[Rfam]
The record is a 131-nucleotide sequence from Clostridium luticellarii, which matches "FMN riboswitch aptamer (RFN element)" in Rfam. It scores 114 bits against the family's covariance model.
RNA sequence: GAAGAUCUUCAGGGCAGGGUGAAAUUCCCGAUCGGCGGUAUAGUCCGCGAGCGCGCGAGCGCAGGUGUGAGAGCACAGGACUUGGUGAAAUUCCAAGACCGACAGUAAAGUCUGGAUGGAAGAAGAUAUAU
Numbered sequence: 001g002a003a004g005a006u007c008u009u010c011a012g013g014g015c016a017g018g019g020u021g022a023a024a025u026u027c028c029c030g031a032u033c034g035g036c037g038g039u040a041u042a043g044u045c046c047g048c049g050a051g052c053g054c055g056c057g058a059g060c061g062c063a064g065g066u067g068u069g070a071g072a073g074c075a076c077a078g079g080a081c082u083u084g085g086u087g088a089a090a091u092u093c094c095a096a097g098a099c100c101g102a103c104a105g106u107a108a109a110g111u112c113u114g115g116a117u118g119g120a121a122g123a124a125g126a127u128a129u130a131u
Stems, first nucleotide, its partner, number of pairs: 003129001005127006017029003031111002033101002035048004043099002081097005103114003